[Rfam]
RNA sequence: CGGGAAACCGGGACUUUGUUUAGGAAUUCGGCAAGUUAGUUCCUUUCUCUUCUUCGUUUCUGUGUAAUAUGUGUUAUGCCUGGCUGUCUACGGAGCAGGUCGCAGUUGACUCGGGGCGGCUUCCGACUGUCUAAUAUACAUUUGUGUCUCAAAUUCGCAUGACGACGGCAAUGAAUUCCCCUGGCCAGUGCUUGUGGUAUCUGAUACACCUCGUACAAAAGGGACGAAGCCCGUCAACGCGGGUAACUAUGACCUCUAGGUUAGCGUAGUACCUUGCCGCCUUCAGUAGCGGCUUGCCAUGAAUGGGAUAAACGGGGAGCGCACAUGUCACCAACUUUGGACCGCGCUGAACUGGUACGUUCCAGUGCGAUCUGGAGUAC
Numbered sequence: 001c002g003g004g005a006a007a008c009c010g011g012g013a014c015u016u017u018g019u020u021u022a023g024g025a026a027u028u029c030g031g032c033a034a035g036u037u038a039g040u041u042c043c044u045u046u047c048u049c050u051u052c053u054u055c056g057u058u059u060c061u062g063u064g065u066a067a068u069a070u071g072u073g074u075u076a077u078g079c080c081u082g083g084c085u086g087u088c089u090a091c092g093g094a095g096c097a098g099g100u101c102g103c104a105g106u107u108g109a110c111u112c113g114g115g116g117c118g119g120c121u122u123c124c125g126a127c128u129g130u131c132u133a134a135u136a137u138a139c140a141u142u143u144g145u146g147u148c149u150c151a152a153a154u155u156c157g158c159a160u161g162a163c164g165a166c167g168g169c170a171a172u173g174a175a176u177u178c179c180c181c182u183g184g185c186c187a188g189u190g191c192u193u194g195u196g197g198u199a200u201c202u203g204a205u206a207c208a209c210c211u212c213g214u215a216c217a218a219a220a221g222g223g224a225c226g227a228a229g230c231c232c233g234u235c236a237a238c239g240c241g242g243g244u245a246a247c248u249a250u251g252a253c254c255u256c257u258a259g260g261u262u263a264g265c266g267u268a269g270u271a272c273c274u275u276g277c278c279g280c281c282u283u284c285a286g287u288a289g290c291g292g293c294u295u296g297c298c299a300u301g302a303a304u305g306g307g308a309u310a311a312a313c314g315g316g317g318a319g320c321g322c323a324c325a326u327g328u329c330a331c332c333a334a335c336u337u338u339g340g341a342c343c344g345c346g347c348u349g350a351a352c353u354g355g356u357a358c359g360u361u362c363c364a365g366u367g368c369g370a371u372c373u374g375g376a377g378u379a380c
Stems, first nucleotide, its partner, number of pairs: 001346002003343002009340001011338003015334002018331001023329002039077002078100005085093001101105001116322003120319004124314002128140003145170003150167001155162002175309001180306002184240002188238002190234002196232002201229002209222003242254003256260001276293005282288001361376005
The family of this 380-nucleotide part of an RNA from Halorubrum sp. Ib24 is "Archaeal large subunit ribosomal RNA".
It scores 828 bits against the family's covariance model.
Rfam links the family to the GO terms ribosome and structural constituent of ribosome.